[Rfam]
RNA sequence: CGGGGAGGUCACCCUCUCUGGCAAACUCAGUCGCGCGCAGGUCCGGACCAGUCCGGGCCCAUUCCUGACGCUCCAGCUCAGGGAUGUCCCAGGCGCC
Numbered sequence: 001c002g003g004g005g006a007g008g009u010c011a012c013c014c015u016c017u018c019u020g021g022c023a024a025a026c027u028c029a030g031u032c033g034c035g036c037g038c039a040g041g042u043c044c045g046g047a048c049c050a051g052u053c054c055g056g057g058c059c060c061a062u063u064c065c066u067g068a069c070g071c072u073c074c075a076g077c078u079c080a081g082g083g084a085u086g087u088c089c090c091a092g093g094c095g096c097c
Stems, first nucleotide, its partner, number of pairs: 002014003035096004040059007060086009
Shown here is a 97-nucleotide RNA from Synechococcus sp. CBW1004, a member of the family "ATPC RNA motif". Taxonomically the source falls in Synechococcus (Bacteria, Bacillati, Cyanobacteriota, Synechococcaceae). By type it is a non-coding RNA gene.